[Rfam]
RNA sequence: UGUCAAGUCGUUUUGGCGCCUUUCGGCGGACGGAUUUCUUUUGCCUUUUUGAAAGUGAGGCAAAUG
Numbered sequence: 001u002g003u004c005a006a007g008u009c010g011u012u013u014u015g016g017c018g019c020c021u022u023u024c025g026g027c028g029g030a031c032g033g034a035u036u037u038c039u040u041u042u043g044c045c046u047u048u049u050u051g052a053a054a055g056u057g058a059g060g061c062a063a064a065u066g
Base pairs, nucleotide, nucleotide: 010061011060012059014058017057018056019055021054022053023052024051025049026048028046031043032042033041034040
Rfam assigns this 66-nucleotide sequence from Rhizobium sp. RU20A to the family "S-element". Rfam links the family to the GO terms mRNA transcription and translation regulator activity. A search with the family's covariance model found it, with a score of 49 bits. Rfam 15.1 lists 231 matches to the family in 124 species. Rfam's curators write: This family represents a group of S-elements from p42d and related plasmids. On this family, see Venkova-Canova et al., Mol Microbiol 2004: "Two discrete elements are required for the replication of a repABC plasmid: an antisense RNA and a stem-loop structure". The family's RNA type in Rfam is cis-regulatory element.